Shown here is a 102-nucleotide sequence from Candidatus Kurthia intestinigallinarum, a member of the family "SAM riboswitch aptamer (S box leader)". Rfam links the family to the GO term regulation of gene expression.

RNA sequence: UUCUUAUCAAGAGAAGCAGAGGGACUGGCCCUACGAAGCUUCAGCAACCAGCCGAAAGGUCAGGUGCUAAUUCCAGAAGGUAAUAACCUUAAAAGAUAAGAA
Numbered sequence: 001u002u003c004u005u006a007u008c009a010a011g012a013g014a015a016g017c018a019g020a021g022g023g024a025c026u027g028g029c030c031c032u033a034c035g036a037a038g039c040u041u042c043a044g045c046a047a048c049c050a051g052c053c054g055a056a057a058g059g060u061c062a063g064g065u066g067c068u069a070a071u072u073c074c075a076g077a078a079g080g081u082a083a084u085a086a087c088c089u090u091a092a093a094a095g096a097u098a099a100g101a102a
Stems, first nucleotide, its partner, number of pairs: 001102008013042005021031003025076004043068004048064002051060003072094001077090005
The source organism's lineage runs through Bacteria, Bacillota, Bacilli, Caryophanales and Kurthia.